[Rfam]
RNA sequence: AUUGGAUAAAAUACUUAAUUUAUGCGAACAUGCUGAAAAUCACAUCCAAUUCGCACUAAGACCAUAUCCUAUAAUAAAGAACAGGAACUCUGUGCAAUGGCAUUGAAGCUUGUGACAUUGCAUCGUUCUUCCUGCGACAUUU
Numbered sequence: 001a002u003u004g005g006a007u008a009a010a011a012u013a014c015u016u017a018a019u020u021u022a023u024g025c026g027a028a029c030a031u032g033c034u035g036a037a038a039a040u041c042a043c044a045u046c047c048a049a050u051u052c053g054c055a056c057u058a059a060g061a062c063c064a065u066a067u068c069c070u071a072u073a074a075u076a077a078a079g080a081a082c083a084g085g086a087a088c089u090c091u092g093u094g095c096a097a098u099g100g101c102a103u104u105g106a107a108g109c110u111u112g113u114g115a116c117a118u119u120g121c122a123u124c125g126u127u128c129u130u131c132c133u134g135c136g137a138c139a140u141u142u
Stems, first nucleotide, its partner, number of pairs: 004069005014060001016058002023055006034048002038045001076141002079138001082134006090125001092123008101114003
Rfam assigns this 142-nucleotide RNA from Drosophila rhopaloa to the family "Drosophila small cajal body-specific RNA PsiU6-40".
The match comes from Rfam's covariance-model search (116 bits).
Rfam 15.1 lists 14 matches to the family in 14 species.
Rfam links the family to the GO terms Cajal body, RNA processing and nucleolus.
NCBI's taxonomy places the organism under Eukaryota, Eumetabola, Ephydroidea, Drosophilinae, Sophophora.